Annotation: A member of the RNA family "MIR535 microRNA precursor family" from Punica granatum, 96 nucleotides long. Its family is annotated with RISC complex and miRNA-mediated post-transcriptional gene silencing in the Gene Ontology. Pairs were carried over by alignment from the consensus structure, which was predicted with RNAalifold. A reference for the family is Zeng et al. (2010), "Conservation and divergence of microRNAs and their functions in Euphorbiaceous plants", Nucleic Acids Res. The source organism's lineage runs through Eukaryota, Streptophytina, Embryophyta, Mesangiospermae and Punica.
RNA sequence: AUCGUAAUCUGACAACGAGAGAGAGCACGCUAGUCGGCAUCCAUGCGGGGAGACAUGGCUGUGUACAAGCGUGCUCUCUUUCGUUGUCAUACGAUG
Numbered sequence: 001a002u003c004g005u006a007a008u009c010u011g012a013c014a015a016c017g018a019g020a021g022a023g024a025g026c027a028c029g030c031u032a033g034u035c036g037g038c039a040u041c042c043a044u045g046c047g048g049g050g051a052g053a054c055a056u057g058g059c060u061g062u063g064u065a066c067a068a069g070c071g072u073g074c075u076c077u078c079u080u081u082c083g084u085u086g087u088c089a090u091a092c093g094a095u096g
Base pairs, nucleotide, nucleotide: 010089011088012087013086014085016083017082020079021078023076025074026073027072028071029070030069031068033066034065